[Rfam]
RNA sequence: AGGUAACAUGACGAGCUUUGCAUGUUUCCUGAUGCAAUCUUCCAACAAAAAGCUUCUGCCAUUCCUGCUUGUGGUUUCAAAGCAAGAACCACAUGUCUCAAGUUUCCAGAUACAUGC
Numbered sequence: 001a002g003g004u005a006a007c008a009u010g011a012c013g014a015g016c017u018u019u020g021c022a023u024g025u026u027u028c029c030u031g032a033u034g035c036a037a038u039c040u041u042c043c044a045a046c047a048a049a050a051a052g053c054u055u056c057u058g059c060c061a062u063u064c065c066u067g068c069u070u071g072u073g074g075u076u077u078c079a080a081a082g083c084a085a086g087a088a089c090c091a092c093a094u095g096u097c098u099c100a101a102g103u104u105u106c107c108a109g110a111u112a113c114a115u116g117c
Stems, first nucleotide, its partner, number of pairs: 001030003005026006055110003067096002070093005076087002
Notes
This 117-nucleotide sequence from Handroanthus impetiginosus belongs to the Rfam family "Small nucleolar RNA snoR104". The match comes from Rfam's covariance-model search (70 bits). The family has 8 seed sequences and 612 matches in Rfam 15.1.